Record summary
The family of this 82-nucleotide sequence is "skipping-rope RNA". The family's consensus secondary structure is taken from published work. Rfam classes the family as a small RNA.
[Rfam]
RNA sequence: UUAUUUUGAGGAUAGAAUAGGCAGCUAUCAAGCCAGAGAUGGUCUUAAAAAAGAUGUGGGGUACGCCGUCCCACCAAAAUAA
Numbered sequence: 001u002u003a004u005u006u007u008g009a010g011g012a013u014a015g016a017a018u019a020g021g022c023a024g025c026u027a028u029c030a031a032g033c034c035a036g037a038g039a040u041g042g043u044c045u046u047a048a049a050a051a052a053g054a055u056g057u058g059g060g061g062u063a064c065g066c067c068g069u070c071c072c073a074c075c076a077a078a079a080u081a082a
Stems, first nucleotide, its partner, number of pairs: 001082008011029005020067003032043004056074005